[Rfam]
Shown here is an 82-nucleotide sequence from Modestobacter caceresii, a member of the family "Actinobacteria sRNA Ms_AS-4". Rfam 15.1 lists 207 matches to the family in 131 species. The family's RNA type in Rfam is small RNA. It scores 68 bits against the family's covariance model. NCBI's taxonomy places the organism under Bacteria, Bacillati, Actinomycetota, Geodermatophilaceae, Modestobacter. A reference for the family is Li et al. (2013), "Identification of small RNAs in Mycobacterium smegmatis using heterologous Hfq", RNA.
RNA sequence: CUUGGCGUCGGUGUAGCGGGUGUGGUCGUCGCCGAACUCGGCGAGCACCCGGGCGCCGAGGAUCGGUCCCAGCCCGGGCUGG
Numbered sequence: 001c002u003u004g005g006c007g008u009c010g011g012u013g014u015a016g017c018g019g020g021u022g023u024g025g026u027c028g029u030c031g032c033c034g035a036a037c038u039c040g041g042c043g044a045g046c047a048c049c050c051g052g053g054c055g056c057c058g059a060g061g062a063u064c065g066g067u068c069c070c071a072g073c074c075c076g077g078g079c080u081g082g
Base pairs, nucleotide, nucleotide: 008044009043010042012040013039018038019037021036023034024033025032026031055079056078057077060075061074063072